The record is a 73-nucleotide sequence, which matches "nadA riboswitch" in Rfam.
The family's RNA type in Rfam is small RNA.
On this family, see Huang et al., RNA 2020: "Structure and ligand binding of the ADP-binding domain of the NAD(+) riboswitch".
[Rfam]
RNA sequence: GCUUUCAACAUCCCCGUUCCAGUUCGAGCGGAGUGCGCGCUGAGCGCGCCUGCCCGUGGCUGGAGCUGAAAGC
Numbered sequence: 001g002c003u004u005u006c007a008a009c010a011u012c013c014c015c016g017u018u019c020c021a022g023u024u025c026g027a028g029c030g031g032a033g034u035g036c037g038c039g040c041u042g043a044g045c046g047c048g049c050c051u052g053c054c055c056g057u058g059g060c061u062g063g064a065g066c067u068g069a070a071a072g073c
Stems, first nucleotide, its partner, number of pairs: 001073007013059001016066007024058001026055001028053004